[Rfam]
RNA sequence: GCAGCGUGUGUAAACAUCCUACACUCUCAGCUGUGGCUUUGUAGUGGCUGGGAGGAGGGUGUUUGCGCCUGCUGC
Numbered sequence: 001g002c003a004g005c006g007u008g009u010g011u012a013a014a015c016a017u018c019c020u021a022c023a024c025u026c027u028c029a030g031c032u033g034u035g036g037c038u039u040u041g042u043a044g045u046g047g048c049u050g051g052g053a054g055g056a057g058g059g060u061g062u063u064u065g066c067g068c069c070u071g072c073u074g075c
Stems, first nucleotide, its partner, number of pairs: 002074005008068013024054009